[Rfam]
RNA sequence: UAAGGAUAUAUUAAAUAUCUUCGUAUAACCCUAAUGAUAUGGUUUAGGGGUCUCUACCAAGAACCAAUAAUUCUUGAUUACGAGGAAAUCAUUUUAUUUG
Numbered sequence: 001u002a003a004g005g006a007u008a009u010a011u012u013a014a015a016u017a018u019c020u021u022c023g024u025a026u027a028a029c030c031c032u033a034a035u036g037a038u039a040u041g042g043u044u045u046a047g048g049g050g051u052c053u054c055u056a057c058c059a060a061g062a063a064c065c066a067a068u069a070a071u072u073c074u075u076g077a078u079u080a081c082g083a084g085g086a087a088a089u090c091a092u093u094u095u096a097u098u099u100g
Base pairs, nucleotide, nucleotide: 018086019085020084021083022082023081024080025079029049030048031047032046033045034044058076059075060074061073062072063071
Dot-bracket structure: .................((((((((...((((((.........))))))........((((((.......))))))..))))))))..............